[Rfam]
RNA sequence: UCCGUUGUUCCGUCAACGGUAACCUACGGACAGAUGCACCAAUAGUGAUAAUUCUGUAUCAAGCUGUCUGGACAAUGUACUCCUUCCGAAAGGAAAAGACAGAGCCGUAAGGGAAAGACAAUAACUCUUAGUAUCAUAGAGUUGGGAGG
Numbered sequence: 001u002c003c004g005u006u007g008u009u010c011c012g013u014c015a016a017c018g019g020u021a022a023c024c025u026a027c028g029g030a031c032a033g034a035u036g037c038a039c040c041a042a043u044a045g046u047g048a049u050a051a052u053u054c055u056g057u058a059u060c061a062a063g064c065u066g067u068c069u070g071g072a073c074a075a076u077g078u079a080c081u082c083c084u085u086c087c088g089a090a091a092g093g094a095a096a097a098g099a100c101a102g103a104g105c106c107g108u109a110a111g112g113g114a115a116a117g118a119c120a121a122u123a124a125c126u127c128u129u130a131g132u133a134u135c136a137u138a139g140a141g142u143u144g145g146g147a148g149g
Stems, first nucleotide, its partner, number of pairs: 002019006028069005033060006041052001043050002084095004098119001100117001105112002124142005

The family of this 149-nucleotide sequence from Bacteroides fragilis is "Group II catalytic intron D1-D4-7". About the family: Group II introns are found in rRNA, tRNA and mRNA of organelles in fungi, plants and protists, and also in mRNA in bacteria. Pairs were carried over by alignment from the consensus structure. Rfam links the family to the GO term Group II intron splicing. Taxonomically the source falls in Bacteroides (Bacteria, Pseudomonadati, Bacteroidota, Bacteroidales). The literature on the family includes a 2001 paper in Trends Genet by Bonen and Vogel, "The ins and outs of group II introns". The sequence is in the family's curated seed alignment.